[Rfam]
RNA sequence: AAGAGAAAAUGUGGCAAGAUGUUGGCAUAGCUGUUUGUGUUUACUGGCCUGCUAUGCCUCCAUAUUGCCAUUUUUUGCUUCC
Number, nucleotide and partner (000 for none) at each position: 001a000002a000003g000004a000005g000006a076007a075008a074009a073010u000011g071012u070013g069014g068015c067016a066017a065018g000019a063020u062021g061022u000023u000024g058025g057026c056027a055028u054029a053030g052031c051032u000033g000034u000035u000036u000037g000038u000039g000040u000041u000042u000043a000044c000045u000046g000047g000048c000049c000050u000051g031052c030053u029054a028055u027056g026057c025058c024059u000060c000061c021062a020063u019064a000065u017066u016067g015068c014069c013070a012071u011072u000073u009074u008075u007076u006077g000078c000079u000080u000081c000082c000